[Rfam]
Nucleotides: 119
Stems, first nucleotide, its partner, number of pairs: 007029001009027001030115004034080010047064006085105001087104007
Number, partner (000 for none) and nucleotide at each position: 001000g002000u003000c004000c005000c006000g007029u008000g009027c010000g011000g012000g013000c014000a015000c016000u017000c018000a019000u020000u021000c022000u023000c024000g025000u026000a027009g028000u029007a030115g031114g032113u033112a034080g035079g036078c037077g038076c039075a040074u041073c042072g043071g044000c045000a046000a047064c048063g049062u050061g051060g052059g053000g054000u055000g056000a057000a058000a059052c060051c061050c062049g063048c064047g065000g066000a067000c068000g069000a070000g071043c072042u073041g074040g075039u076038g077037c078036g079035c080034c081000g082000a083000a084000a085105a086000c087104a088103g089102g090101u091100c092099c093098c094000g095000a096000a097000c098093g099092g100091g101090g102089c103088c104087u105085u106000u107000u108000u109000u110000a111000u112033u113032g114031c115030c116000u117000u118000u119000u

Annotation:
Rhizobiales sRNA Atu_C8: a 119-nucleotide RNA from Devosia lucknowensis. A reference for the family is Wilms et al. (2012), "Deep sequencing uncovers numerous small RNAs on all four replicons of the plant pathogen Agrobacterium tumefaciens", RNA Biol. Pairs were carried over by alignment from the consensus structure, which was predicted with CMfinder. Taxonomically the source falls in Devosia (Bacteria, Pseudomonadati, Pseudomonadota, Alphaproteobacteria).